[Rfam]
RNA sequence: AUGCUGUUGAAUGAUGAGAGCUUUGAGUGAUCCAUCGUCUGACUACUGCCAAAGAUGAGACUUCAAGUACUGACAACAGCAA
Number, nucleotide and partner (000 for none) at each position: 001a000002u081003g080004c079005u078006g077007u076008u075009g071010a000011a000012u000013g032014a031015u030016g000017a028018g000019a000020g000021c000022u000023u000024u000025g000026a000027g000028u017029g000030a015031u014032c013033c000034a000035u058036c057037g056038u055039c054040u000041g000042a000043c000044u000045a000046c000047u000048g000049c000050c000051a000052a000053a000054g039055a038056u037057g036058a035059g000060a000061c000062u000063u000064c000065a000066a000067g000068u000069a000070c000071u009072g000073a000074c000075a008076a007077c006078a005079g004080c003081a002082a000
Rfam assigns this 82-nucleotide RNA sequence from Albula glossodonta to the family "Small nucleolar RNA SNORD71". The literature on the family includes a 2001 paper in EMBO J by Huttenhofer et al., "RNomics: an experimental approach that identifies 201 candidates for novel, small, non-messenger RNAs in mouse". Rfam classes the family as an H/ACA-box small nucleolar RNA. About the family: snoRNA HBII-239 belongs to the family of C/D snoRNAs.It is the human orthologue of the mouse MBII-239 described and is predicted to guide 2'O-ribose methylation of 5.8S rRNA on residue U14. The family's consensus secondary structure was predicted with RNAalifold. NCBI's taxonomy places the organism under Eukaryota, Metazoa, Vertebrata, Actinopteri, Albula.